Insect-Specific Flavivirus 3' UTR repeats Rb: a 47-nucleotide RNA sequence from Culex theileri flavivirus RP-2011. About the family: 3' UTRs in insect specific flavivirus families present three to four repeats of conserved element Rb. Clan: Insect-Specific Flavivirus 3' UTR repeats Ra and Rb elements. The family's RNA type in Rfam is cis-regulatory element. A reference for the family is Ochsenreiter et al. (2019), "Functional RNA Structures in the 3'UTR of Tick-Borne, Insect-Specific and No-Known-Vector Flaviviruses", Viruses. The organism belongs to Orthoflavivirus, within Viruses.
RNA sequence: CCCCAGUCCCUAGGUCAGGUGAAUGACCCCGUGAUGUUGUGAGGACA
Numbered sequence: 001c002c003c004c005a006g007u008c009c010c011u012a013g014g015u016c017a018g019g020u021g022a023a024u025g026a027c028c029c030c031g032u033g034a035u036g037u038u039g040u041g042a043g044g045a046c047a
Stems, first nucleotide, its partner, number of pairs: 002044002004039004010033001013028005